[Rfam]
A member of the RNA family "Small nucleolar RNA SNORD99" from Leptosomus discolor, 71 nucleotides long. Its family is annotated with nucleolus and RNA processing in the Gene Ontology. Lineage of the source: Eukaryota > Dipnotetrapodomorpha > Coelurosauria > Neoaves > Leptosomus. It scores 69 bits against the family's covariance model.
RNA sequence: CCUGGUCCGUGAUGACUCUUUUCUUUGGAGACCGAGGGAUGAAUCCUGCGGAUAUGGGGCUGAGGCCAGGC
Dot-bracket structure: (((((............................................................))))).
Numbered sequence: 001c002c003u004g005g006u007c008c009g010u011g012a013u014g015a016c017u018c019u020u021u022u023c024u025u026u027g028g029a030g031a032c033c034g035a036g037g038g039a040u041g042a043a044u045c046c047u048g049c050g051g052a053u054a055u056g057g058g059g060c061u062g063a064g065g066c067c068a069g070g071c
Stems, first nucleotide, its partner, number of pairs: 001070005
The family is grouped with related families in Rfam's "SNORD58 clan".